[Rfam]
Nucleotides: 079
Base pairs, nucleotide, nucleotide: 001078002077003076004075005074006073007072010024011023012022026049027048028047029046030045055071056070057069058068059067
Number, partner (000 for none) and nucleotide at each position: 001078g002077g003076c004075c005074u006073a007072c008000u009000g010024g011023c012022c013000c014000a015000a016000u017000g018000g019000c020000a021000a022012g023011g024010c025000g026049c027048u028047u029046g030045a031000c032000u033000u034000c035000g036000a037000c038000u039000u040000u041000g042000a043000g044000a045030u046029c047028a048027a049026g050000a051000g052000a053000u054000u055071g056070c057069a058068g059067g060000u061000u062000c063000g064000a065000c066000c067059c068058c069057u070056g071055c072007g073006u074005g075004g076003g077002u078001c079000a
Description: This 79-nucleotide RNA from Mollisiaceae sp. DMI_Dod_QoI belongs to the Rfam family "tRNA". The match comes from Rfam's covariance-model search (49 bits). The family's consensus secondary structure is taken from published work.